[Rfam]
Nucleotides: 145
Stems, first nucleotide, its partner, number of pairs: 004064005018050009029041002032039001078138001080136003093123005099116004
Number, partner (000 for none) and nucleotide at each position: 001000g002000u003000u004064u005063g006062c007061c008060c009000a010000u011000g012000g013000u014000a015000u016000c017000u018050a019049a020048u021047g022046u023045c024044c025043a026042g027000a028000a029041u030040c031000u032039a033000u034000a035000u036000u037000c038000g039032u040030g041029g042026c043025u044024g045023g046022a047021c048020a049019u050018u051000u052000c053000g054000u055000u056000u057000u058000c059000a060008g061007g062006g063005c064004a065000g066000a067000a068000a069000c070000a071000a072000a073000u074000u075000c076000g077000a078138a079000a080136c081135a082134g083000g084000u085000u086000u087000u088000g089000c090000g091000a092000c093123a094122c095121a096120g097119u098000u099116a100115g101114c102113u103000g104000g105000u106000c107000u108000a109000u110000a111000c112000a113102a114101g115100c116099u117000u118000u119097a120096c121095u122094g123093u124000u125000a126000c127000u128000u129000u130000a131000u132000c133000c134082c135081u136080g137000c138078u139000u140000a141000c142000a143000u144000c145000u